[Rfam]
RNA: Small nucleolar RNA R66
RNA sequence: UCCUGUUAUAGCAUGGAAUCUUUGAGACCUGACAUUCUUAUGAUUACAAACAUAAGCAUAUUUUCUGAGGAC
Numbered sequence: 001u002c003c004u005g006u007u008a009u010a011g012c013a014u015g016g017a018a019u020c021u022u023u024g025a026g027a028c029c030u031g032a033c034a035u036u037c038u039u040a041u042g043a044u045u046a047c048a049a050a051c052a053u054a055a056g057c058a059u060a061u062u063u064u065c066u067g068a069g070g071a072c
Base pairs, nucleotide, nucleotide: 001071002070003069032041034039
Dot-bracket structure: (((............................(.(....).)...........................))).